A member of the RNA family "U5 spliceosomal RNA", 117 nucleotides long.
RNA sequence: AGCCGUGUGGUGAAUACAAAGCGAACUAUUCUUUCGCCUUUUACUAAAGAAUACCGUGUGUUCUCCACGCUAAACGGCAUACACCAAUUUUUGGAGGAGUAACUUCAUCUGAAGUUU
Numbered sequence: 001a002g003c004c005g006u007g008u009g010g011u012g013a014a015u016a017c018a019a020a021g022c023g024a025a026c027u028a029u030u031c032u033u034u035c036g037c038c039u040u041u042u043a044c045u046a047a048a049g050a051a052u053a054c055c056g057u058g059u060g061u062u063c064u065c066c067a068c069g070c071u072a073a074a075c076g077g078c079a080u081a082c083a084c085c086a087a088u089u090u091u092u093g094g095a096g097g098a099g100u101a102a103c104u105u106c107a108u109c110u111g112a113a114g115u116u117u
Base pairs, nucleotide, nucleotide: 003077004076005075006074008067009066010065012063013062014061015060016059017058018057027053028052029051030050031049032048033047034046095117101116102115103114104113105112106111